[Rfam]
RNA: 6S / SsrS RNA
RNA sequence: GGUCCGCUGCCUGGUUCGACAGGCCGCAUUAAUCCCCAGGGCCGAUAACCUUGAUCUCUAGGGAGCUGUCCCUGUCCGGCCCAUCGGGCCGGGUACACGGCGCCCACCUGCUCAUGCAGGCCAUGGAGGAUAGGCACAUGGCCACCGGCCGAGGCGGCGCCUUC
Numbered sequence: 001g002g003u004c005c006g007c008u009g010c011c012u013g014g015u016u017c018g019a020c021a022g023g024c025c026g027c028a029u030u031a032a033u034c035c036c037c038a039g040g041g042c043c044g045a046u047a048a049c050c051u052u053g054a055u056c057u058c059u060a061g062g063g064a065g066c067u068g069u070c071c072c073u074g075u076c077c078g079g080c081c082c083a084u085c086g087g088g089c090c091g092g093g094u095a096c097a098c099g100g101c102g103c104c105c106a107c108c109u110g111c112u113c114a115u116g117c118a119g120g121c122c123a124u125g126g127a128g129g130a131u132a133g134g135c136a137c138a139u140g141g142c143c144a145c146c147g148g149c150c151g152a153g154g155c156g157g158c159g160c161c162u163u164c
Stems, first nucleotide, its partner, number of pairs: 002162001005159007012151004017147002033130003036126001038124001040122004061105003065101005074094009